[Rfam]
RNA sequence: AGCUUUGCCCAGUGGCAGUAUCAUAGCCAAUGAGGUUUAUCCGAGGUGUAAUUAUUGCUAAUUGAAAACUUUUCCCAAUACUCCGCCAUGACAACUUGAAAUAUAGUCGGCGUUGGCAAUUUUUGAGUCUCUACGGGGA
Numbered sequence: 001a002g003c004u005u006u007g008c009c010c011a012g013u014g015g016c017a018g019u020a021u022c023a024u025a026g027c028c029a030a031u032g033a034g035g036u037u038u039a040u041c042c043g044a045g046g047u048g049u050a051a052u053u054a055u056u057g058c059u060a061a062u063u064g065a066a067a068a069c070u071u072u073u074c075c076c077a078a079u080a081c082u083c084c085g086c087c088a089u090g091a092c093a094a095c096u097u098g099a100a101a102u103a104u105a106g107u108c109g110g111c112g113u114u115g116g117c118a119a120u121u122u123u124u125g126a127g128u129c130u131c132u133a134c135g136g137g138g139a
Stems, first nucleotide, its partner, number of pairs: 020052002023049002026047003034042002085117003088113003092109001094107003128139004
RNA: U4 spliceosomal RNA